RNA: Clostridiales-2 RNA
RNA sequence: CUAGACAAGGGAGUGAAUAGGGAAUUCUCCUCUGUCGUAUUCAGGAGGGUGCUCAGACUGCUUAACAGCCGUCGAAGGGAAC
Numbered sequence: 001c002u003a004g005a006c007a008a009g010g011g012a013g014u015g016a017a018u019a020g021g022g023a024a025u026u027c028u029c030c031u032c033u034g035u036c037g038u039a040u041u042c043a044g045g046a047g048g049g050u051g052c053u054c055a056g057a058c059u060g061c062u063u064a065a066c067a068g069c070c071g072u073c074g075a076a077g078g079g080a081a082c
Stems, first nucleotide, its partner, number of pairs: 015035001017033001019031004056070001058068003